[Rfam]
RNA sequence: ACACGCGAUGCGGGAGAGUCCGACCCCGGUCGGGCACCGAAGGAGCAAGCCUCCCCGCCAAUCUCUCAGGUCUACGUACCGCAUCGAACUG
Numbered sequence: 001a002c003a004c005g006c007g008a009u010g011c012g013g014g015a016g017a018g019u020c021c022g023a024c025c026c027c028g029g030u031c032g033g034g035c036a037c038c039g040a041a042g043g044a045g046c047a048a049g050c051c052u053c054c055c056c057g058c059c060a061a062u063c064u065c066u067c068a069g070g071u072c073u074a075c076g077u078a079c080c081g082c083a084u085c086g087a088a089c090u091g
Stems, first nucleotide, its partner, number of pairs: 006086008019034004036071003039067002043065003049058002
The record is a 91-nucleotide RNA sequence from Glaciihabitans sp. INWT7, which matches "Glycine riboswitch aptamer" in Rfam.